[Rfam]
RNA sequence: ACGCAUCUUCAGGGCAGGGUGAAAUUCCCGAUCGGCGGUACAGUCCGCGAGCAGCGCGCCUUGGCGCGAUGUUGGAGCAUACGCUCAUGAACCGGUGAGACUCCGGUACCGACAGUUACAGUCUGGAUGGAAGAAGUUGCAG
Numbered sequence: 001a002c003g004c005a006u007c008u009u010c011a012g013g014g015c016a017g018g019g020u021g022a023a024a025u026u027c028c029c030g031a032u033c034g035g036c037g038g039u040a041c042a043g044u045c046c047g048c049g050a051g052c053a054g055c056g057c058g059c060c061u062u063g064g065c066g067c068g069a070u071g072u073u074g075g076a077g078c079a080u081a082c083g084c085u086c087a088u089g090a091a092c093c094g095g096u097g098a099g100a101c102u103c104c105g106g107u108a109c110c111g112a113c114a115g116u117u118a119c120a121g122u123c124u125g126g127a128u129g130g131a132a133g134a135a136g137u138u139g140c141a142g
Base pairs, nucleotide, nucleotide: 003140004139005138007136008135009134010133017029018028019027031122032121033111034110035048036047037046038045043109044108053085054084055083056082091107092106093105094104095103113125114124115123
A member of the RNA family "FMN riboswitch aptamer (RFN element)" from Bifidobacterium biavatii, 142 nucleotides long. Taxonomically the source falls in Bifidobacterium biavatii (Bacteria, Bacillati, Actinomycetota, Bifidobacterium). The match comes from Rfam's covariance-model search (105 bits). From the family's description: The RFN element is a highly conserved domain that is found frequently in the 5'-untranslated regions of prokaryotic mRNAs that encode for flavin mononucleotide (FMN) biosynthesis and transport proteins. This element is a metabolite-dependent riboswitch that directly binds FMN in the absence of proteins. In Bacillus subtilis, the riboswitch most likely controls gene expression by causing premature transcription termination within the 5' untranslated region of the ribDEAHT operon and precluding access to the ribosome-binding site of ypaA mRNA.The FMN riboswitch structure, reported in present an FMN-bound six-stem junction, adopts a butterfly-like scaffold, stapled together by opposingly directed but nearly identically folded peripheral domains.